mir-27 microRNA precursor family: a 78-nucleotide RNA sequence from Scleropages formosus. For this family Rfam cites "The developmental miRNA profiles of zebrafish as determined by small RNA cloning" (Chen et al., Genes Dev, 2005). NCBI's taxonomy places the organism under Eukaryota, Vertebrata, Neopterygii, Osteoglossidae, Scleropages. A search with the family's covariance model found it, with a score of 62 bits.
[Rfam]
RNA sequence: CUCUGCGUCAGGACUUAGCCCACAUGUGAACACUGUGUGCUCCUUCCAUGUUCACAGUGGAUAAGUUCUGCCGCCCAG
Numbered sequence: 001c002u003c004u005g006c007g008u009c010a011g012g013a014c015u016u017a018g019c020c021c022a023c024a025u026g027u028g029a030a031c032a033c034u035g036u037g038u039g040c041u042c043c044u045u046c047c048a049u050g051u052u053c054a055c056a057g058u059g060g061a062u063a064a065g066u067u068c069u070g071c072c073g074c075c076c077a078g
Stems, first nucleotide, its partner, number of pairs: 011068007019060002026055007